A member of the RNA family "SAM (S-adenosyl methionine) riboswitch aptamer" from Arthrobacter psychrochitiniphilus, 114 nucleotides long. SAM-IV is a mRNA element that regulates gene expression via direct sensing of S-adenosylmethionine (SAM or AdoMet). SAM-IV riboswitches share conserved nucleotide positions with the previously described SAM-I riboswitches sequence analysis and molecular recognition experiments suggest that SAM-I and SAM-IV riboswitches share similar ligand binding sites, but have different scaffolds. Its Rfam clan is "SAM clan". A search with the family's covariance model found it, with a score of 111 bits. Taxonomically the source falls in Arthrobacter (Bacteria, Bacillati, Actinomycetota, Actinomycetes).
RNA sequence: GGUCACGAGUGCCAGCGCUAAACCCCGGUUUGCUGGCCGGCAACCCUCCUUUCGCGGUGGGGUGCCCCGGGUGACGACCUGGCCAAACCUGUUCGGUUCUGGCAAGCGCGGACU
Numbered sequence: 001g002g003u004c005a006c007g008a009g010u011g012c013c014a015g016c017g018c019u020a021a022a023c024c025c026c027g028g029u030u031u032g033c034u035g036g037c038c039g040g041c042a043a044c045c046c047u048c049c050u051u052u053c054g055c056g057g058u059g060g061g062g063u064g065c066c067c068c069g070g071g072u073g074a075c076g077a078c079c080u081g082g083c084c085a086a087a088c089c090u091g092u093u094c095g096g097u098u099c100u101g102g103c104a105a106g107c108g109c110g111g112a113c114u
Stems, first nucleotide, its partner, number of pairs: 001079004009038001011037006021030002039066003044062003048057002082103004087098001089096002